Shown here is a 55-nucleotide sequence, a member of the family "Plastid-psbA-4 3UTR RNA". For this family Rfam cites "Retrograde signaling in plants: A critical review focusing on the GUN pathway and beyond" (Richter et al., Plant Commun, 2023). Pairs were carried over by alignment from the consensus structure, which was predicted with LocARNA. It is one of the family's seed sequences. Plastid psbA-4 is a non-coding RNA (ncRNA) present in plastids. It was identified in inverted repeat sequences in the 3 prime untranslate region (3UTR) of photosystem II quinone-binding protein (psbA).
RNA sequence: AAAAGGGAGAAAUACCUCCCUCUUGUUCUAUUAAGAGGGAGGUAUUUCUCCUUUU
Numbered sequence: 001a002a003a004a005g006g007g008a009g010a011a012a013u014a015c016c017u018c019c020c021u022c023u024u025g026u027u028c029u030a031u032u033a034a035g036a037g038g039g040a041g042g043u044a045u046u047u048c049u050c051c052u053u054u055u
Base pairs, nucleotide, nucleotide: 003054004053005052006051007050008049009048010047011046012045013044014043017040018039020037021036022035023034024033025032